[Rfam]
RNA sequence: AGAGUCUUACAUGAAAGGCAUAGCCAACCAUCAUGGCCCCGAGUCAUGCCUCGACCUUCAGCAAUGGGGUGGGGAAGCGUUGACAGGGGAACACACAGGCAGGCCAUUGAGCUCCGAAAUCACCUCAAUUCGCAGGCUGACCCUGUUCAACGAAGGGGAAAGCAACAUCGGACGUACCGAUCAAGGCGAGGUACGAACGGCUCGGCGGAGUCAGGAAAGG
Numbered sequence: 001a002g003a004g005u006c007u008u009a010c011a012u013g014a015a016a017g018g019c020a021u022a023g024c025c026a027a028c029c030a031u032c033a034u035g036g037c038c039c040c041g042a043g044u045c046a047u048g049c050c051u052c053g054a055c056c057u058u059c060a061g062c063a064a065u066g067g068g069g070u071g072g073g074g075a076a077g078c079g080u081u082g083a084c085a086g087g088g089g090a091a092c093a094c095a096c097a098g099g100c101a102g103g104c105c106a107u108u109g110a111g112c113u114c115c116g117a118a119a120u121c122a123c124c125u126c127a128a129u130u131c132g133c134a135g136g137c138u139g140a141c142c143c144u145g146u147u148c149a150a151c152g153a154a155g156g157g158g159a160a161a162g163c164a165a166c167a168u169c170g171g172a173c174g175u176a177c178c179g180a181u182c183a184a185g186g187c188g189a190g191g192u193a194c195g196a197a198c199g200g201c202u203c204g205g206c207g208g209a210g211u212c213a214g215g216a217a218a219g220g
Stems, first nucleotide, its partner, number of pairs: 010035005017029002021189001023187002037089004043084004047079002049074005056069005108214001109212001111211006130205003134202002136163003141157004168200003173195006

Shown here is a 220-nucleotide sequence from Chlorobium limicola, a member of the family "Group II catalytic intron D1-D4-6". The family has 174 seed sequences and 1,617 matches in Rfam 15.1. About the family: Group II introns are found in rRNA, tRNA and mRNA of organelles in fungi, plants and protists, and also in mRNA in bacteria. The source organism's lineage runs through Bacteria, Chlorobiales, Chlorobiaceae, Chlorobium and Chlorobium limicola.